[Rfam]
RNA sequence: CCGAGUACAAUCAAUAACUAAAAAAGUGUUAAGUAAUACUAGGAACCACCUCCUUGGCUAGCCCAAUCUCCCUUGGGCUGGCCUUUUC
Numbered sequence: 001c002c003g004a005g006u007a008c009a010a011u012c013a014a015u016a017a018c019u020a021a022a023a024a025a026g027u028g029u030u031a032a033g034u035a036a037u038a039c040u041a042g043g044a045a046c047c048a049c050c051u052c053c054u055u056g057g058c059u060a061g062c063c064c065a066a067u068c069u070c071c072c073u074u075g076g077g078c079u080g081g082c083c084u085u086u087u088c
Stems, first nucleotide, its partner, number of pairs: 041054004056083011
RNA: CyaR/Rye RNA